The record is a 152-nucleotide RNA from Bifidobacterium merycicum, which matches "FMN riboswitch aptamer (RFN element)" in Rfam. Rfam links the family to the GO term FMN binding.
RNA sequence: CGUAAGUUUCAGGGAAGGUGAAAUUCCUUACUGGCGGUAAAUCGGCGCCCGGCAUUCAUAACGGUGCGACCGGCAAGCCCGCGACCCGCGCAAGCGGCCGAUUCGGUGCGAAUCCGAAGCCAACGGUACAGUCCGGAUGGAAGAAACGAGGA
Numbered sequence: 001c002g003u004a005a006g007u008u009u010c011a012g013g014g015a016a017g018g019u020g021a022a023a024u025u026c027c028u029u030a031c032u033g034g035c036g037g038u039a040a041a042u043c044g045g046c047g048c049c050c051g052g053c054a055u056u057c058a059u060a061a062c063g064g065u066g067c068g069a070c071c072g073g074c075a076a077g078c079c080c081g082c083g084a085c086c087c088g089c090g091c092a093a094g095c096g097g098c099c100g101a102u103u104c105g106g107u108g109c110g111a112a113u114c115c116g117a118a119g120c121c122a123a124c125g126g127u128a129c130a131g132u133c134c135g136g137a138u139g140g141a142a143g144a145a146a147c148g149a150g151g152a
Base pairs, nucleotide, nucleotide: 003150006147007146008145009144010143016028017027018026030132031131032122033121034082035081036080037079086097087096102118103117104116105115106114124135125134126133
The RFN element is a highly conserved domain that is found frequently in the 5'-untranslated regions of prokaryotic mRNAs that encode for flavin mononucleotide (FMN) biosynthesis and transport proteins. This element is a metabolite-dependent riboswitch that directly binds FMN in the absence of proteins. In Bacillus subtilis, the riboswitch most likely controls gene expression by causing premature transcription termination within the 5' untranslated region of the ribDEAHT operon and precluding access to the ribosome-binding site of ypaA mRNA.The FMN riboswitch structure, reported in present an FMN-bound six-stem junction, adopts a butterfly-like scaffold, stapled together by opposingly directed but nearly identically folded peripheral domains.